[Rfam]
RNA: Purine riboswitch aptamer
RNA sequence: GUUCAUGUCACUGCAAGCCCUCGUAUAAUGUCGGGAAUAUGGCCUGACAGUCUCUACCGAGCGACCGAGAAUCGCUUGACUACGAGGACGUUGUGCGACAUU
Number, nucleotide and partner (000 for none) at each position: 001g000002u000003u000004c000005a000006u000007g000008u000009c000010a000011c000012u000013g000014c000015a000016a000017g000018c000019c087020c086021u085022c084023g083024u082025a081026u000027a000028a000029u049030g048031u047032c046033g045034g044035g043036a000037a000038u000039a000040u000041g000042g000043c035044c034045u033046g032047a031048c030049a029050g000051u000052c000053u000054c000055u000056a000057c000058c078059g077060a076061g075062c074063g073064a072065c000066c000067g000068a000069g000070a000071a000072u064073c063074g062075c061076u060077u059078g058079a000080c000081u025082a024083c023084g022085a021086g020087g019088a000089c000090g000091u000092u000093g000094u000095g000096c000097g000098a000099c000100a000101u000102u000